[Rfam]
RNA sequence: AUAACAUGAUGGGAAGCGCUUAGCUUCCCGUGUAUGAUUGAACCCUUAUUGCUGAUCCCGCCUGGUUCGGAAAAGCGCUUUGGGUUCAUUUUUAU
Numbered sequence: 001a002u003a004a005c006a007u008g009a010u011g012g013g014a015a016g017c018g019c020u021u022a023g024c025u026u027c028c029c030g031u032g033u034a035u036g037a038u039u040g041a042a043c044c045c046u047u048a049u050u051g052c053u054g055a056u057c058c059c060g061c062c063u064g065g066u067u068c069g070g071a072a073a074a075g076c077g078c079u080u081u082g083g084g085u086u087c088a089u090u091u092u093u094a095u
Base pairs, nucleotide, nucleotide: 010030011029012028013027014026015025016024017023039088040087041086042085043084044083045082059070
Description: A member of the RNA family "sroE RNA" from Klebsiella sp. RIT-PI-d, 95 nucleotides long. Rfam describes the family as follows. This family consists of a number of bacterial sroE RNA genes of around 90 bases in length. sroE is found in several Enterobacterial species but its function is unknown. The source organism's lineage runs through Bacteria, Pseudomonadota, Gammaproteobacteria, Enterobacteriaceae and Klebsiella. The family's RNA type in Rfam is small RNA.